[Rfam]
RNA sequence: GAGGGAGGGCCCCUCGGAGCCGGUUUGCAAGAGCAGGCUUCAAACAGCCAUAAGCUGCUUUGGUAAAGAGCUAAGGUAGUGAGCGUUAUGGAAAAGGCACAAUUAUGUGUCAUG
Dot-bracket structure: (((((.....)))))((((((.((((....)))).))))))...((.((((((((.(((.((((.....)))).))).)).....))))))....((((((....)))))).))
Numbered sequence: 001g002a003g004g005g006a007g008g009g010c011c012c013c014u015c016g017g018a019g020c021c022g023g024u025u026u027g028c029a030a031g032a033g034c035a036g037g038c039u040u041c042a043a044a045c046a047g048c049c050a051u052a053a054g055c056u057g058c059u060u061u062g063g064u065a066a067a068g069a070g071c072u073a074a075g076g077u078a079g080u081g082a083g084c085g086u087u088a089u090g091g092a093a094a095a096g097g098c099a100c101a102a103u104u105a106u107g108u109g110u111c112a113u114g
Stems, first nucleotide, its partner, number of pairs: 001015005016041006023034004045114002048091006054080002057077003061073004096111006

A member of the RNA family "Group II catalytic intron D1-D4-2" from Wolbachia endosymbiont of Culex quinquefasciatus, 114 nucleotides long. The source organism's lineage runs through Bacteria, Pseudomonadota, Rickettsiales, Wolbachieae and Wolbachia endosymbiont of Culex quinquefasciatus. The base pairs follow the family's consensus structure. About the family: Group II introns are found in rRNA, tRNA and mRNA of organelles in fungi, plants and protists, and also in mRNA in bacteria. For this family Rfam cites "The ins and outs of group II introns" (Bonen and Vogel, Trends Genet, 2001). The family has 144 seed sequences and 1,231 matches in Rfam 15.1.